[Rfam]
RNA sequence: GCUAGAUGAUGACGGCCUGGGCAGAAACCCACUAGGUGGACUGCCCAUGUCUGAGCACCCUGGC
Numbered sequence: 001g002c003u004a005g006a007u008g009a010u011g012a013c014g015g016c017c018u019g020g021g022c023a024g025a026a027a028c029c030c031a032c033u034a035g036g037u038g039g040a041c042u043g044c045c046c047a048u049g050u051c052u053g054a055g056c057a058c059c060c061u062g063g064c
Stems, first nucleotide, its partner, number of pairs: 001064005014051003018047006029039003
RNA: Selenocysteine insertion sequence 1